The record is a 68-nucleotide RNA, which matches "narK RNA" in Rfam. By type it is a cis-regulatory element. Rfam's curators put it in the seed alignment.
RNA sequence: GGCACGCUAGAUGCUAGUUCCGUUUCAGGCAGGCCAACGGCGGUCUGCGCACACGACAAAGGCGUCGC
Number, nucleotide and partner (000 for none) at each position: 001g000002g000003c000004a000005c000006g000007c000008u000009a000010g000011a000012u000013g000014c000015u000016a000017g000018u000019u000020c000021c000022g000023u000024u000025u000026c000027a000028g000029g048030c047031a046032g045033g044034c043035c042036a000037a000038c000039g000040g000041c000042g035043g034044u033045c032046u031047g030048c029049g000050c000051a000052c000053a000054c000055g000056a000057c000058a000059a000060a000061g000062g000063c000064g000065u000066c000067g000068c000